[Rfam]
RNA: Lysine riboswitch aptamer
Organism: Holzapfeliella floricola
RNA sequence: CACAUCGAAGAGGUCGCAACUGACAUCAAUAAAAAUAACUAGUCUGCUGUUAAGACGAUGAAGUUAUUUUGAAAGGGGAAGUUGCCGAAGUGGGCACUUAAACAGCUAAGUGUUGGCUGGGACAUGAUUGAACAAGUCAUGGACUGUCGCAAUAAUUGCGGAGAGCUAUCGACAAA
Numbered sequence: 001c002a003c004a005u006c007g008a009a010g011a012g013g014u015c016g017c018a019a020c021u022g023a024c025a026u027c028a029a030u031a032a033a034a035a036u037a038a039c040u041a042g043u044c045u046g047c048u049g050u051u052a053a054g055a056c057g058a059u060g061a062a063g064u065u066a067u068u069u070u071g072a073a074a075g076g077g078g079a080a081g082u083u084g085c086c087g088a089a090g091u092g093g094g095c096a097c098u099u100a101a102a103c104a105g106c107u108a109a110g111u112g113u114u115g116g117c118u119g120g121g122a123c124a125u126g127a128u129u130g131a132a133c134a135a136g137u138c139a140u141g142g143a144c145u146g147u148c149g150c151a152a153u154a155a156u157u158g159c160g161g162a163g164a165g166c167u168a169u170c171g172a173c174a175a176a
Base pairs, nucleotide, nucleotide: 006171007170008169009167010166016085017084018083019082020081021080024077032070033069034068035067036066037065038064039063089118090117091116093114094113095112096111097110098109099108100107119145120144123141124140125139126138127137128136129135147161148160149159150158151157152156